[Rfam]
RNA: Alphaproteobacterial ar15
Organism: Paenochrobactrum gallinarii
RNA sequence: ACUUACCGCUGUGCCUCCUCCCAUUGCGCGCGGUAAGUGUUCCCCUCUGAAGGUUUUGCCUUUAAGGCACCUUCAUAAAUUUUAAGCCGGGCUCUUUAGUCCGGCUCUUUUU
Numbered sequence: 001a002c003u004u005a006c007c008g009c010u011g012u013g014c015c016u017c018c019u020c021c022c023a024u025u026g027c028g029c030g031c032g033g034u035a036a037g038u039g040u041u042c043c044c045c046u047c048u049g050a051a052g053g054u055u056u057u058g059c060c061u062u063u064a065a066g067g068c069a070c071c072u073u074c075a076u077a078a079a080u081u082u083u084a085a086g087c088c089g090g091g092c093u094c095u096u097u098a099g100u101c102c103g104g105c106u107c108u109u110u111u112u
Stems, first nucleotide, its partner, number of pairs: 001038005007032003011029004048075007085106009